Overview: Short Intergenic Abundant RNA: a 121-nucleotide RNA sequence from Salmonella enterica. Rfam classes the family as an antitoxin RNA. For this family Rfam cites "Identification of novel small RNAs using comparative genomics and microarrays" (Wassarman et al., Genes Dev, 2001). Rfam describes the family as follows. This family contains multiple ncRNA from E. coli that were identified in a large scale screen of E. coli, were they were called candidates 43,55 and 61. These RNAs have also been identified by other groups and called QUAD RNAs. Rfam links the family to the GO term mRNA binding. The organism belongs to Salmonella enterica subsp. enterica, within Bacteria.

RNA sequence: CAGGACGACGGGUGAGCGGGGAGCUCUCCCCCCCUCUGAUUGGCUGUUAGUCAGCUGCGAAACUUAUCAGUAACAGAACAAUCAGUAUGAUGACCUGGUGCAUCAUAACCCUUUCCUUAUU
Numbered sequence: 001c002a003g004g005a006c007g008a009c010g011g012g013u014g015a016g017c018g019g020g021g022a023g024c025u026c027u028c029c030c031c032c033c034c035u036c037u038g039a040u041u042g043g044c045u046g047u048u049a050g051u052c053a054g055c056u057g058c059g060a061a062a063c064u065u066a067u068c069a070g071u072a073a074c075a076g077a078a079c080a081a082u083c084a085g086u087a088u089g090a091u092g093a094c095c096u097g098g099u100g101c102a103u104c105a106u107a108a109c110c111c112u113u114u115c116c117u118u119a120u121u
Stems, first nucleotide, its partner, number of pairs: 002117004008113001010111004016034001018032001036085004086107007